RNA sequence: GGAUGAUAAAGGCAAACCCUGAGCGAUCAGGGGACGCAAAGAAAAGGGUCUUUCAUCACACAGGGAGGUGUGGAAGGAACAGAAAAGUUCUUUGGAAUAAUUUAGGGAAGUAGUUGAGAAAGAUAGCCUUGCUGCCGAA
Numbered sequence: 001g002g003a004u005g006a007u008a009a010a011g012g013c014a015a016a017c018c019c020u021g022a023g024c025g026a027u028c029a030g031g032g033g034a035c036g037c038a039a040a041g042a043a044a045a046g047g048g049u050c051u052u053u054c055a056u057c058a059c060a061c062a063g064g065g066a067g068g069u070g071u072g073g074a075a076g077g078a079a080c081a082g083a084a085a086a087g088u089u090c091u092u093u094g095g096a097a098u099a100a101u102u103u104a105g106g107g108a109a110g111u112a113g114u115u116g117a118g119a120a121a122g123a124u125a126g127c128c129u130u131g132c133u134g135c136c137g138a139a
Stems, first nucleotide, its partner, number of pairs: 012037002017032006040133002043130001045129003048124003056117002
Dot-bracket structure: ...........((...((((((....))))))...))..((.(.((((((.....((..........................................................))....)))..)))).))......
Shown here is a 139-nucleotide RNA sequence from Candidatus Brocadia fulgida, a member of the family "c-di-GMP-I riboswitch aptamer". Gene Ontology term of the family: cyclic-di-GMP binding. It scores 55 bits against the family's covariance model. Rfam 15.1 lists 5,092 matches to the family in 1,772 species.